[Rfam]
RNA sequence: CUAGCAUAUUGUUUGGAGAAUUAUUCUCCUAGAAUAAUUUGAUGAAGCGUAAUAUCUGGGGUUACACGCUUAUUUGUAAUGCAACAAAAGUUGUUAUAAAAUACAACAGCAAUAGUUGGUAGCUAUAAAAGGCGUGUGGGAAGCCCUUUCGCGAAUACUAAAGUUGUGGUGACAAAAAAAAUUAUUAGUAAGCUAACUUUG
Numbered sequence: 001c002u003a004g005c006a007u008a009u010u011g012u013u014u015g016g017a018g019a020a021u022u023a024u025u026c027u028c029c030u031a032g033a034a035u036a037a038u039u040u041g042a043u044g045a046a047g048c049g050u051a052a053u054a055u056c057u058g059g060g061g062u063u064a065c066a067c068g069c070u071u072a073u074u075u076g077u078a079a080u081g082c083a084a085c086a087a088a089a090g091u092u093g094u095u096a097u098a099a100a101a102u103a104c105a106a107c108a109g110c111a112a113u114a115g116u117u118g119g120u121a122g123c124u125a126u127a128a129a130a131g132g133c134g135u136g137u138g139g140g141a142a143g144c145c146c147u148u149u150c151g152c153g154a155a156u157a158c159u160a161a162a163g164u165u166g167u168g169g170u171g172a173c174a175a176a177a178a179a180a181a182u183u184a185u186u187a188g189u190a191a192g193c194u195a196a197c198u199u200u201g
Base pairs, nucleotide, nucleotide: 001059002058003057004056006055007054008053009052010051011048012047013046014045068193069192070191071190072189073188074187076185077184106167107166108165109164110163113160114159115158116157122152123151

A member of the RNA family "RT-16 RNA", 201 nucleotides long.